[Rfam]
RNA sequence: GGCUACGUGGUUCGCAACCAUCCCACGAUAAAAAACUAGGGAGAG
Numbered sequence: 001g002g003c004u005a006c007g008u009g010g011u012u013c014g015c016a017a018c019c020a021u022c023c024c025a026c027g028a029u030a031a032a033a034a035a036c037u038a039g040g041g042a043g044a045g
Stems, first nucleotide, its partner, number of pairs: 006027005016037001
Rfam assigns this 45-nucleotide RNA from Peribacillus loiseleuriae to the family "PreQ1 (pre queuosine) riboswitch aptamer".